[Rfam]
RNA sequence: UGGCUUAUGAUGAUAAUUUAAUUGUCAGCGGAUUUCAGUGAGAUUUUAAUCAAGGAUCUGAUUGUUACACACACUGAAGGCCA
Numbered sequence: 001u002g003g004c005u006u007a008u009g010a011u012g013a014u015a016a017u018u019u020a021a022u023u024g025u026c027a028g029c030g031g032a033u034u035u036c037a038g039u040g041a042g043a044u045u046u047u048a049a050u051c052a053a054g055g056a057u058c059u060g061a062u063u064g065u066u067a068c069a070c071a072c073a074c075u076g077a078a079g080g081c082c083a
Stems, first nucleotide, its partner, number of pairs: 001083005
The record is an 83-nucleotide sequence from Trifolium medium, which matches "Small nucleolar RNA R11/Z151" in Rfam. For this family Rfam cites "Identification of 66 box C/D snoRNAs in Arabidopsis thaliana: extensive gene duplications generated multiple isoforms predicting new ribosomal RNA 2'-O-methylation sites" (Barneche et al., J Mol Biol, 2001). The organism belongs to Trifolium, within Eukaryota. The match comes from Rfam's covariance-model search (62 bits).